[Rfam]
RNA sequence: UUCUUAUCAAGAGUGGUGGAGGGACUGGCCCUAUGAAACCCGGCAACCUUAUAUACAGGUUUUUUGAUAGACUUAGCUUACAUAUUUUAUAUUGUAUAUAUAGAAUAUAUAAGCUAUCAGACUAUAGAAGCUAGAAAUAUAAAGGUGCUAAAUCCUGCAGUUUUUACUGGAAGAUAGGAU
Numbered sequence: 001u002u003c004u005u006a007u008c009a010a011g012a013g014u015g016g017u018g019g020a021g022g023g024a025c026u027g028g029c030c031c032u033a034u035g036a037a038a039c040c041c042g043g044c045a046a047c048c049u050u051a052u053a054u055a056c057a058g059g060u061u062u063u064u065u066g067a068u069a070g071a072c073u074u075a076g077c078u079u080a081c082a083u084a085u086u087u088u089a090u091a092u093u094g095u096a097u098a099u100a101u102a103g104a105a106u107a108u109a110u111a112a113g114c115u116a117u118c119a120g121a122c123u124a125u126a127g128a129a130g131c132u133a134g135a136a137a138u139a140u141a142a143a144g145g146u147g148c149u150a151a152a153u154c155c156u157g158c159a160g161u162u163u164u165u166a167c168u169g170g171a172a173g174a175u176a177g178g179a180u
Base pairs, nucleotide, nucleotide: 002179003178004177005176006175007174008173013041015040016039017038021031022030023029025157027155028154042149043148044147045146047145048144050141051140052139053138054137153172158169159168160167161166
This 180-nucleotide sequence from Clostridium manihotivorum belongs to the Rfam family "SAM riboswitch aptamer (S box leader)".
It scores 74 bits against the family's covariance model.
Its family is annotated with regulation of gene expression in the Gene Ontology.
Its Rfam clan is "SAM clan".
The organism belongs to Clostridium, within Bacteria.